[Rfam]
RNA: Small nucleolar RNA SNORA41
RNA sequence: CGCCACAGCUACUGGCCUGGAACUGUUCAGAACUGUAGCAGUUGCAGGAUUCCCUCUGUGGAAAAUGAACUGUUACAUGGCAUUAAGCUCCUCCUCAGAUCCCCUGGAAAGGGCUUCCUAUGUAACAGACAAAG
Numbered sequence: 001c002g003c004c005a006c007a008g009c010u011a012c013u014g015g016c017c018u019g020g021a022a023c024u025g026u027u028c029a030g031a032a033c034u035g036u037a038g039c040a041g042u043u044g045c046a047g048g049a050u051u052c053c054c055u056c057u058g059u060g061g062a063a064a065a066u067g068a069a070c071u072g073u074u075a076c077a078u079g080g081c082a083u084u085a086a087g088c089u090c091c092u093c094c095u096c097a098g099a100u101c102c103c104c105u106g107g108a109a110a111g112g113g114c115u116u117c118c119u120a121u122g123u124a125a126c127a128g129a130c131a132a133a134g
Base pairs, nucleotide, nucleotide: 003061004060005059006058017047018046019045021043022042023041024040025039075123076122077121078120079119089113090112092108093107094106